[Rfam]
RNA sequence: CUCUUAUUCAGAGUGAUGGAGAUACAUAGGAUCUGUGAAGUCACGGCAACCCCGCAUGGCGGAAGGUGCCAACCUGAGCGAAUAAUCGAACAAUAAGAG
Numbered sequence: 001c002u003c004u005u006a007u008u009c010a011g012a013g014u015g016a017u018g019g020a021g022a023u024a025c026a027u028a029g030g031a032u033c034u035g036u037g038a039a040g041u042c043a044c045g046g047c048a049a050c051c052c053c054g055c056a057u058g059g060c061g062g063a064a065g066g067u068g069c070c071a072a073c074c075u076g077a078g079c080g081a082a083u084a085a086u087c088g089a090a091c092a093a094u095a096a097g098a099g
Base pairs, nucleotide, nucleotide: 001099002098003097004096005095006094007093008092013044014043015042016041017040021033022032023031027078030075045070046069047068048067050066051065052062053061054060055059079088080087081086
RNA: SAM riboswitch aptamer (S box leader)
Organism: Blautia hansenii